[Rfam]
RNA sequence: GGUCAUGAGUUCCAGCGACAAGCCCCGGCUCGUUGGACGGCAACCCUCCACCGCGGUGGGGUGCCCCGGGUGAAGACCAGGCCCCGCGUCACACAGGCGCGGGACAAGCGCGGGUC
Numbered sequence: 001g002g003u004c005a006u007g008a009g010u011u012c013c014a015g016c017g018a019c020a021a022g023c024c025c026c027g028g029c030u031c032g033u034u035g036g037a038c039g040g041c042a043a044c045c046c047u048c049c050a051c052c053g054c055g056g057u058g059g060g061g062u063g064c065c066c067c068g069g070g071u072g073a074a075g076a077c078c079a080g081g082c083c084c085c086g087c088g089u090c091a092c093a094c095a096g097g098c099g100c101g102g103g104a105c106a107a108g109c110g111c112g113g114g115u116c
Base pairs, nucleotide, nucleotide: 001078002077003076004075009038011037012036013035014034015033016032021030022029039065040064041063044061045060046059048056049055081105083103084102085101086100087099088098089097090096
Shown here is a 116-nucleotide RNA from Paeniglutamicibacter cryotolerans, a member of the family "SAM (S-adenosyl methionine) riboswitch aptamer". Lineage of the source: Bacteria > Actinomycetes > Micrococcales > Micrococcaceae > Paeniglutamicibacter.